[Rfam]
RNA: c-di-AMP riboswitch aptamer (ydaO/yuaA leader)
RNA sequence: CGAAUACCGCUGGCAGGAGCGGGGGAACCAAGCACGACGGGCAUCGCCAGACGGUGUCCUUGGGGUGAAGCCGAUCGGAACCUCGACCGGCCGGGCGCAUCUCCCGCCCGAACCCGACAGCUCACCCCGCAG
Numbered sequence: 001c002g003a004a005u006a007c008c009g010c011u012g013g014c015a016g017g018a019g020c021g022g023g024g025g026a027a028c029c030a031a032g033c034a035c036g037a038c039g040g041g042c043a044u045c046g047c048c049a050g051a052c053g054g055u056g057u058c059c060u061u062g063g064g065g066u067g068a069a070g071c072c073g074a075u076c077g078g079a080a081c082c083u084c085g086a087c088c089g090g091c092c093g094g095g096c097g098c099a100u101c102u103c104c105c106g107c108c109c110g111a112a113c114c115c116g117a118c119a120g121c122u123c124a125c126c127c128c129g130c131a132g
Base pairs, nucleotide, nucleotide: 001132005018007016019130020129021128022127023126024125029062030061031060032059063115064114065113071090072089073088093109094108095107096106